Small nucleolar RNA SNORA47: a 134-nucleotide RNA from Cyprinus carpio. It scores 46 bits against the family's covariance model. By type it is an H/ACA-box small nucleolar RNA. Taxonomically the source falls in Cyprinus (Eukaryota, Bilateria, Actinopteri, Ostariophysi). Its family is annotated with RNA processing and nucleolus in the Gene Ontology.

RNA sequence: UGGAGACUUGAGAAAGUUUUGCAGUUGUUUUAGUACUGCCACAACUGGUUUCGUUCUCCAAGACUAAACCCUAAACACAGUCUGUACUGUCUGAAUGUCUUUUUCAGACUUUAAGCUGUGUUUAUGAACACUUC
Numbered sequence: 001u002g003g004a005g006a007c008u009u010g011a012g013a014a015a016g017u018u019u020u021g022c023a024g025u026u027g028u029u030u031u032a033g034u035a036c037u038g039c040c041a042c043a044a045c046u047g048g049u050u051u052c053g054u055u056c057u058c059c060a061a062g063a064c065u066a067a068a069c070c071c072u073a074a075a076c077a078c079a080g081u082c083u084g085u086a087c088u089g090u091c092u093g094a095a096u097g098u099c100u101u102u103u104u105c106a107g108a109c110u111u112u113a114a115g116c117u118g119u120g121u122u123u124a125u126g127a128a129c130a131c132u133u134c
Stems, first nucleotide, its partner, number of pairs: 002059005015046004019041001021039005075125001079122002083118002092113004098108002